DUF805 RNA: a 66-nucleotide RNA sequence from Dysgonomonas sp. PF1-16. By type it is a cis-regulatory element. Lineage of the source: Bacteria > Pseudomonadati > Bacteroidota > Dysgonomonadaceae > Dysgonomonas. A search with the family's covariance model found it, with a score of 68 bits. The base pairs follow the family's consensus structure, which is taken from published work.
[Rfam]
RNA sequence: UAUAUAUGGAGUUCGGAGACCAUUAAAAACGAGGCGGAACUGAAAAGCCAUACGAGUAAGAAAACA
Number, nucleotide and partner (000 for none) at each position: 001u000002a000003u000004a000005u000006a023007u022008g021009g020010a000011g000012u000013u000014c000015g000016g000017a000018g000019a000020c009021c008022a007023u006024u000025a000026a000027a000028a000029a000030c000031g000032a000033g049034g048035c047036g000037g000038a000039a000040c060041u059042g000043a000044a000045a000046a000047g035048c034049c033050a000051u000052a000053c000054g000055a000056g000057u000058a000059a041060g040061a000062a000063a000064a000065c000066a000